[Rfam]
RNA sequence: AUCUCUUUUUUGCUGUUUGGUUAAUGAUUGAGUGUAGUGUGUGUUCUUAUCAGUUUAAUAUCUGGUAUGUUCUUCUGUUUGAUGAACGCUAUAUUAAACGCAGUUUUGGAACGGGGAGUUGGAGUAAGAGUUUACUCUAUCUAGUCUACGCAUCGAUUUGGUAUUGCAGUACUUCCAGAAACGGUGCACCUGCU
Numbered sequence: 001a002u003c004u005c006u007u008u009u010u011u012g013c014u015g016u017u018u019g020g021u022u023a024a025u026g027a028u029u030g031a032g033u034g035u036a037g038u039g040u041g042u043g044u045u046c047u048u049a050u051c052a053g054u055u056u057a058a059u060a061u062c063u064g065g066u067a068u069g070u071u072c073u074u075c076u077g078u079u080u081g082a083u084g085a086a087c088g089c090u091a092u093a094u095u096a097a098a099c100g101c102a103g104u105u106u107u108g109g110a111a112c113g114g115g116g117a118g119u120u121g122g123a124g125u126a127a128g129a130g131u132u133u134a135c136u137c138u139a140u141c142u143a144g145u146c147u148a149c150g151c152a153u154c155g156a157u158u159u160g161g162u163a164u165u166g167c168a169g170u171a172c173u174u175c176c177a178g179a180a181a182c183g184g185u186g187c188a189c190c191u192g193c194u
Stems, first nucleotide, its partner, number of pairs: 007027002009024001012021003048067006069087004074082002115147003119143001121141002127138004150187006157179005
Dot-bracket structure: ......(((..(((....)))..).))....................((((((........)))))).((((.((.....)).))))...........................(((.(.((....((((....)))).)).).)))..((((((.(((((.............)))))..)))))).......
This 194-nucleotide RNA from Homo sapiens belongs to the Rfam family "U2 spliceosomal RNA". The organism belongs to Homo, within Eukaryota. The family has 208 seed sequences and 71,512 matches in Rfam 15.1. The family is grouped with related families in Rfam's "U2 clan". Rfam classes the family as a spliceosomal small nuclear RNA.